[Rfam]
The record is a 456-nucleotide RNA sequence from Oreocharis arfaki, which matches "Vertebrate telomerase RNA" in Rfam.
RNA sequence: CGUGCCGGGGUGGGCAGGCCCCGUGGCCAACUAACCCUAAUGGCGGCUGCUCCCCUCACGCCCGCCCGCUGUUUUACUCGCUGACUUUCAGCAGGCCAAGGGAGCGGCCCAAAGGGAUGCUGGGGGGGAGGGGGGAAGGAAAAGGUCCGGCAUCAAAAAAAGCCAGCGAAGGGAUCCACACCCCGGCCCAUCCUGGGGUCCCUGUCCCUCCUCCACAACCGGGGGAUGGUCCCGCCGUCGCCCCUCGUGGAGGCCGUGGUCGGAAGGCUCAGCGCCACUACCGCCGCGAAGAGUUCGUCUCUGUCAGCCUCGGCGGCGGCCGGGAAGGGAGGGCCGGCCCGCCCACCUCGGGCACCGGGGGACCCUAGCAGAACAAAACGGGCGCGGCGCCGCGGGCGCUGAGCAGCCGCGGCUCCCUCAGACGUGGGAUGCGCGGCCGGCGCCGCCCCGACACCC
Numbered sequence: 001c002g003u004g005c006c007g008g009g010g011u012g013g014g015c016a017g018g019c020c021c022c023g024u025g026g027c028c029a030a031c032u033a034a035c036c037c038u039a040a041u042g043g044c045g046g047c048u049g050c051u052c053c054c055c056u057c058a059c060g061c062c063c064g065c066c067c068g069c070u071g072u073u074u075u076a077c078u079c080g081c082u083g084a085c086u087u088u089c090a091g092c093a094g095g096c097c098a099a100g101g102g103a104g105c106g107g108c109c110c111a112a113a114g115g116g117a118u119g120c121u122g123g124g125g126g127g128g129a130g131g132g133g134g135g136a137a138g139g140a141a142a143a144g145g146u147c148c149g150g151c152a153u154c155a156a157a158a159a160a161a162g163c164c165a166g167c168g169a170a171g172g173g174a175u176c177c178a179c180a181c182c183c184c185g186g187c188c189c190a191u192c193c194u195g196g197g198g199u200c201c202c203u204g205u206c207c208c209u210c211c212u213c214c215a216c217a218a219c220c221g222g223g224g225g226a227u228g229g230u231c232c233c234g235c236c237g238u239c240g241c242c243c244c245u246c247g248u249g250g251a252g253g254c255c256g257u258g259g260u261c262g263g264a265a266g267g268c269u270c271a272g273c274g275c276c277a278c279u280a281c282c283g284c285c286g287c288g289a290a291g292a293g294u295u296c297g298u299c300u301c302u303g304u305c306a307g308c309c310u311c312g313g314c315g316g317c318g319g320c321c322g323g324g325a326a327g328g329g330a331g332g333g334c335c336g337g338c339c340c341g342c343c344c345a346c347c348u349c350g351g352g353c354a355c356c357g358g359g360g361g362a363c364c365c366u367a368g369c370a371g372a373a374c375a376a377a378a379c380g381g382g383c384g385c386g387g388c389g390c391c392g393c394g395g396g397c398g399c400u401g402a403g404c405a406g407c408c409g410c411g412g413c414u415c416c417c418u419c420a421g422a423c424g425u426g427g428g429a430u431g432c433g434c435g436g437c438c439g440g441c442g443c444c445g446c447c448c449c450g451a452c453a454c455c456c
Base pairs, nucleotide, nucleotide: 004187005186006185007184008183009182010181011180012179014177017176018175020173021172022171049105050104051103052102053101064096065095066094068092069091070090071089080167081166082165083164085162086160087159088158193368194367195366196365197364198363199362233319239315240314241313242312255288256287257286258285259284261283262282263281266276267275268274290302291301292300293299380448381447382446383445386444387443388442389441390440391439407436408435409434410433411432414429415428416427417426

Telomerase is a ribonucleoprotein reverse transcriptase that synthesises telomeric DNA. Telomerase RNAs differ greatly in sequence and structure between vertebrates, ciliates and yeasts, but they share a 5' pseudoknot structure close to the template sequence. Vertebrate telomerase RNAs have a 3' H/ACA snoRNA-like domain. The match comes from Rfam's covariance-model search (135 bits). The family is grouped with related families in Rfam's "Telomerase clan". Gene Ontology terms of the family: telomerase catalytic core complex, telomerase activity and telomere maintenance via telomerase.